[Rfam]
RNA: Purine riboswitch aptamer
RNA sequence: ACAAAUUAAAACGCAGUUGCCUAUAUAAUGCCGCAAUACGGGCGGUAAGUUUCUACCCAAAGCCGUAAACUUUGGACUAUAAGCAGAUUGAGGAUGACU
Numbered sequence: 001a002c003a004a005a006u007u008a009a010a011a012c013g014c015a016g017u018u019g020c021c022u023a024u025a026u027a028a029u030g031c032c033g034c035a036a037u038a039c040g041g042g043c044g045g046u047a048a049g050u051u052u053c054u055a056c057c058c059a060a061a062g063c064c065g066u067a068a069a070c071u072u073u074g075g076a077c078u079a080u081a082a083g084c085a086g087a088u089u090g091a092g093g094a095u096g097a098c099u
Base pairs, nucleotide, nucleotide: 018085019084020083022081023080024079025078029047030046031045032044033043034042057075058074059073060072061071062070